A member of the RNA family "mir-395 microRNA precursor family", 86 nucleotides long. The base pairs follow the family's consensus structure, which was predicted with PFOLD. A reference for the family is Jones-Rhoades and Bartel (2004), "Computational Identification of Plant MicroRNAs and Their Targets, Including a Stress-Induced miRNA", Mol Cell. Rfam's curators put it in the seed alignment. The family has 25 seed sequences and 2,798 matches in Rfam 15.1. From the family's description: mir-395 was identified in both Arabidopsis thaliana and Oryza sativa computationally and was later experimentally verified. mir-395 is thought to target mRNAs coding for ATP sulphurylases. The mature sequence is excised from the 3' arm of the hairpin.

RNA sequence: GAGUCCCUAGGAGUUCCUUUCAAGCACUUUACGACACACUGUAUUGAGAGUUGUCGUGAAGUGUUUGGGGGAACUCUUAGUGUCGC
Numbered sequence: 001g002a003g004u005c006c007c008u009a010g011g012a013g014u015u016c017c018u019u020u021c022a023a024g025c026a027c028u029u030u031a032c033g034a035c036a037c038a039c040u041g042u043a044u045u046g047a048g049a050g051u052u053g054u055c056g057u058g059a060a061g062u063g064u065u066u067g068g069g070g071g072a073a074c075u076c077u078u079a080g081u082g083u084c085g086c
Base pairs, nucleotide, nucleotide: 005082007080008079009078011076012075013074014073015072016071017070018069019068020067022066023065024064025063026062027061028060029059030058031057032056033055034054035053036052